[Rfam]
RNA sequence: CGUCUCACGCCUGAAAGGGCGACGGCGAAAGCCGGUGCGAGAAGUCAGCAGAGGCCGUAGUAGCUGGGCAACCAGUCAAGGGC
Dot-bracket structure: ((..(..(((((....)))))..).)).................((....)).(((......(((((....)))))....)))
Numbered sequence: 001c002g003u004c005u006c007a008c009g010c011c012u013g014a015a016a017g018g019g020c021g022a023c024g025g026c027g028a029a030a031g032c033c034g035g036u037g038c039g040a041g042a043a044g045u046c047a048g049c050a051g052a053g054g055c056c057g058u059a060g061u062a063g064c065u066g067g068g069c070a071a072c073c074a075g076u077c078a079a080g081g082g083c
Stems, first nucleotide, its partner, number of pairs: 001027002005024001008021005045052002054083003063076005